[Rfam]
permuted transfer-messenger RNA: a 212-nucleotide sequence from Sphingomonas oligophenolica. By type it is a non-coding RNA gene. Pairs were carried over by alignment from the consensus structure, which is taken from published work. The organism belongs to Sphingomonas, within Bacteria. A search with the family's covariance model found it, with a score of 127 bits.
RNA sequence: GGCGAUAAAGGAUUGCGUAAAAUAGACGCAGCGGACCCGGGGGCAGUACCCGGCGGCUCCACCAUAAGGUGGUGUUCUGGACACCGUUUCUGACGGGGCCGAACCAGGAUCGACGUGUGUUGAAAGGCGUUUUCUUUUGCUCGGAAUGGGACCACCGUGACGGCCCAUACACAAGUGCCAACGAUAACGAAGCACUCGCGAUUGCGGCGUAA
Numbered sequence: 001g002g003c004g005a006u007a008a009a010g011g012a013u014u015g016c017g018u019a020a021a022a023u024a025g026a027c028g029c030a031g032c033g034g035a036c037c038c039g040g041g042g043g044c045a046g047u048a049c050c051c052g053g054c055g056g057c058u059c060c061a062c063c064a065u066a067a068g069g070u071g072g073u074g075u076u077c078u079g080g081a082c083a084c085c086g087u088u089u090c091u092g093a094c095g096g097g098g099c100c101g102a103a104c105c106a107g108g109a110u111c112g113a114c115g116u117g118u119g120u121u122g123a124a125a126g127g128c129g130u131u132u133u134c135u136u137u138u139g140c141u142c143g144g145a146a147u148g149g150g151a152c153c154a155c156c157g158u159g160a161c162g163g164c165c166c167a168u169a170c171a172c173a174a175g176u177g178c179c180a181a182c183g184a185u186a187a188c189g190a191a192g193c194a195c196u197c198g199c200g201a202u203u204g205c206g207g208c209g210u211a212a
Base pairs, nucleotide, nucleotide: 001141002140003139004138005137015130016129017128018127027119028118029117031116032115033114037053038052039051040050041049054101055100056099057098058097059096060095142157143156144155